The family of this 98-nucleotide sequence from Microbacterium saccharophilum is "mraW RNA".

[Rfam]
RNA sequence: UUCUGAGCCCCGGUCGUGACUCCCAGCCGCACGCCCUGACGCACUUCCCCGGUGUCAGGUCGGAGCGGAUGGGGAUCAGGACCUGGGAUCGGACCCCU
Numbered sequence: 001u002u003c004u005g006a007g008c009c010c011c012g013g014u015c016g017u018g019a020c021u022c023c024c025a026g027c028c029g030c031a032c033g034c035c036c037u038g039a040c041g042c043a044c045u046u047c048c049c050c051g052g053u054g055u056c057a058g059g060u061c062g063g064a065g066c067g068g069a070u071g072g073g074g075a076u077c078a079g080g081a082c083c084u085g086g087g088a089u090c091g092g093a094c095c096c097c098u
Stems, first nucleotide, its partner, number of pairs: 010085001012083004018077002021074005027068004032062002035059008
Dot-bracket structure: .........(.((((..((.(((((.((((.((.((((((((.........)))))))).))..)))).))))).))..)))).).............
It scores 66 bits against the family's covariance model.
Rfam classes the family as a cis-regulatory element.